[Rfam]
RNA sequence: AACAUCUAAAACAAUGAAAGCCCAACCUCUCUUUCAUCGUUGCGGCUCCGAAGACCGCGCCACCAGAAUUAGUUAUUUAAAAAAGUA
Dot-bracket structure: .................................((...(((((((.(.....).)))))..))..))....................

Shown here is an 87-nucleotide sequence from Seinonella peptonophila, a member of the family "BsrC".
The organism belongs to Seinonella, within Bacteria.
The family has 29 seed sequences and 572 matches in Rfam 15.1.
The base pairs follow the family's consensus structure, which was predicted with CMfinder.
The family's RNA type in Rfam is small RNA.
For this family Rfam cites "Novel small RNA-encoding genes in the intergenic regions of Bacillus subtilis" (Saito et al., Gene, 2008).
About the family: The 301 nucleotide sequence from Kouji Nakamura has been trimmed to a highly conserved ~85 nucleotide long core to form this family.
It scores 72 bits against the family's covariance model.